[Rfam]
RNA sequence: CACGCACAGGCAAUGGCACUGGAAGAAUUCACGGGUGUUAUCUGGUACCCCGUGUUCUCUUAGUGGCAUCACUGGUGCUGG
Numbered sequence: 001c002a003c004g005c006a007c008a009g010g011c012a013a014u015g016g017c018a019c020u021g022g023a024a025g026a027a028u029u030c031a032c033g034g035g036u037g038u039u040a041u042c043u044g045g046u047a048c049c050c051c052g053u054g055u056u057c058u059c060u061u062a063g064u065g066g067c068a069u070c071a072c073u074g075g076u077g078c079u080g081g
Stems, first nucleotide, its partner, number of pairs: 004078004009073002013069003017065002020062003023058001025057002030054005
The record is an 81-nucleotide sequence from Eumeta japonica, which matches "mir-263 microRNA precursor family" in Rfam. The source organism's lineage runs through Eukaryota, Hexapoda, Insecta, Panorpida and Eumeta. On this family, see Li et al., BMC Genomics 2009: "Direct sequencing and expression analysis of a large number of miRNAs in Aedes aegypti and a multi-species survey of novel mosquito miRNAs". Its Rfam clan is "mir-182 clan". The base pairs follow the family's consensus structure, which was predicted with RNAalifold.